[Rfam]
RNA sequence: UAAACAGAUUAUUUGCCUGAAAAGGCAAUGGCUGGUGAUUUAAACGUCACCGGCCU
Numbered sequence: 001u002a003a004a005c006a007g008a009u010u011a012u013u014u015g016c017c018u019g020a021a022a023a024g025g026c027a028a029u030g031g032c033u034g035g036u037g038a039u040u041u042a043a044a045c046g047u048c049a050c051c052g053g054c055c056u
Base pairs, nucleotide, nucleotide: 015026016025017024030055031054032053033052034051035050036049037048038047039046
Dot-bracket structure: ..............(((......)))...((((((((((......)))))))))).